[Rfam]
Background
Shown here is a 424-nucleotide sequence from Enterobacter sp. 638, a member of the family "cspA thermoregulator". Pairs were carried over by alignment from the consensus structure, which is taken from published work. It is one of the family's seed sequences. The literature on the family includes a 2010 paper in Mol Cell by Giuliodori et al., "The cspA mRNA is a thermosensor that modulates translation of the cold-shock protein CspA". The organism belongs to Enterobacter, within Bacteria. Rfam links the family to the GO terms regulation of translation and response to temperature stimulus. Rfam classes the family as an RNA thermoregulator.

RNA sequence: GUCGGUUUGUUCACAGACCUAAAGCAGUUUAGUUAAGCAGUCCAGAUGAGUUAUCUUAGAUACCCUUCGUAGUGACCCUUCCUCUAUCGCUUAAAAAUCUGUAACACAUUCCAUCAUCGCGCCGGAAGGCAAAACAAAUAUUUAAAAGGUAAAAUCUAUGUCUGGUAAAAUGACUGGUCUGGUAAAAUGGUUCAACGCUGAUAAAGGUUUCGGCUUCAUCACUCCUGACGAUGGCUCUAAAGAUGUAUUCGUACACUUCUCUGCUAUCCAGAACGAAGGCUACAAAUCUUUGGACGAAGGCCAGAAAGUUUCCUUCACCAUCGAAAGCGGCGCUAAAGGCCCAGCAGCUGGUAACGUUGUAAGCCUGUAAGCUUCCAACUCAGCAGCAAAGAAUUUAAAAACCCGCCUCUGGCGGGUUUUUUUC
Numbered sequence: 001g002u003c004g005g006u007u008u009g010u011u012c013a014c015a016g017a018c019c020u021a022a023a024g025c026a027g028u029u030u031a032g033u034u035a036a037g038c039a040g041u042c043c044a045g046a047u048g049a050g051u052u053a054u055c056u057u058a059g060a061u062a063c064c065c066u067u068c069g070u071a072g073u074g075a076c077c078c079u080u081c082c083u084c085u086a087u088c089g090c091u092u093a094a095a096a097a098u099c100u101g102u103a104a105c106a107c108a109u110u111c112c113a114u115c116a117u118c119g120c121g122c123c124g125g126a127a128g129g130c131a132a133a134a135c136a137a138a139u140a141u142u143u144a145a146a147a148g149g150u151a152a153a154a155u156c157u158a159u160g161u162c163u164g165g166u167a168a169a170a171u172g173a174c175u176g177g178u179c180u181g182g183u184a185a186a187a188u189g190g191u192u193c194a195a196c197g198c199u200g201a202u203a204a205a206g207g208u209u210u211c212g213g214c215u216u217c218a219u220c221a222c223u224c225c226u227g228a229c230g231a232u233g234g235c236u237c238u239a240a241a242g243a244u245g246u247a248u249u250c251g252u253a254c255a256c257u258u259c260u261c262u263g264c265u266a267u268c269c270a271g272a273a274c275g276a277a278g279g280c281u282a283c284a285a286a287u288c289u290u291u292g293g294a295c296g297a298a299g300g301c302c303a304g305a306a307a308g309u310u311u312c313c314u315u316c317a318c319c320a321u322c323g324a325a326a327g328c329g330g331c332g333c334u335a336a337a338g339g340c341c342c343a344g345c346a347g348c349u350g351g352u353a354a355c356g357u358u359g360u361a362a363g364c365c366u367g368u369a370a371g372c373u374u375c376c377a378a379c380u381c382a383g384c385a386g387c388a389a390a391g392a393a394u395u396u397a398a399a400a401a402c403c404c405g406c407c408u409c410u411g412g413c414g415g416g417u418u419u420u421u422u423u424c
Base pairs, nucleotide, nucleotide: 004019005018006017007016008015009014023226024225026223027222028221037216039215040214041213042212043207050202051201052200053199055197057195059193060192062191063190064189068160069159070158071157072156074155081149082148083146085144086143089107092104121130122129123128162177163176164175165174166173229323230322231321232320233319234318242250243249253311255309256308257307258306260305261304262303263302264300265299267294268293269292270291271290272289275288276287329342330341332340333339334338344368345367346366347365348363349362351360352359372391373390379386380385397421398420399419400418401417402416403415404414405413406412407411